Background:
The family of this 79-nucleotide RNA from Kryptolebias marmoratus is "mir-219 microRNA precursor family". The base pairs follow the family's consensus structure, which was predicted with RNAalifold. The literature on the family includes a 2003 paper in Science by Lim et al., "Vertebrate microRNA genes". NCBI's taxonomy places the organism under Eukaryota, Chordata, Actinopterygii, Teleostei, Kryptolebias.
[Rfam]
RNA sequence: UCUGGUGUUGAUUGUCCAAACGCAAUUCUUGUACUUCUCCUUCAUACCCAGGAGUUGUGGAUGGACAUCAUGCUCCCAA
Number, nucleotide and partner (000 for none) at each position: 001u000002c000003u000004g076005g075006u000007g073008u000009u070010g069011a068012u067013u000014g066015u065016c064017c063018a062019a000020a000021c059022g058023c057024a056025a055026u054027u053028c052029u051030u050031g049032u000033a000034c000035u000036u000037c000038u000039c000040c000041u000042u000043c000044a000045u000046a000047c000048c000049c031050a030051g029052g028053a027054g026055u025056u024057g023058u022059g021060g000061a000062u018063g017064g016065a015066c014067a012068u011069c010070a009071u000072g000073c007074u000075c005076c004077c000078a000079a000